The record is a 130-nucleotide sequence from Puma concolor, which matches "Small nucleolar RNA SNORA20" in Rfam. The match comes from Rfam's covariance-model search (91 bits). Its family is annotated with nucleolus and RNA processing in the Gene Ontology. Taxonomically the source falls in Puma (Eukaryota, Opisthokonta, Bilateria, Euteleostomi). Clan: SNORA20 clan.

RNA sequence: CAUCCCAUUGAUUUGCUGCUCUGGUUUUUCAGUUAUAUCAGCAGUUAUACAUAUGGGAAAGAACAAUUUUAGGCCAUUAUAAAUGGAGAUGGAGUAACCAUUUCAUCUAUUCCGCAUAGUCCAGACAUUG
Numbered sequence: 001c002a003u004c005c006c007a008u009u010g011a012u013u014u015g016c017u018g019c020u021c022u023g024g025u026u027u028u029u030c031a032g033u034u035a036u037a038u039c040a041g042c043a044g045u046u047a048u049a050c051a052u053a054u055g056g057g058a059a060a061g062a063a064c065a066a067u068u069u070u071a072g073g074c075c076a077u078u079a080u081a082a083a084u085g086g087a088g089a090u091g092g093a094g095u096a097a098c099c100a101u102u103u104c105a106u107c108u109a110u111u112c113c114g115c116a117u118a119g120u121c122c123a124g125a126c127a128u129u130g
Stems, first nucleotide, its partner, number of pairs: 003058006015045006022037002025035001069124002072121003076117001078116001080114001087108009
Rfam 15.1 lists 437 matches to the family in 157 species. ACA20 is a member of the H/ACA class of snoRNA that guide the sites of modification of uridines to pseudouridines.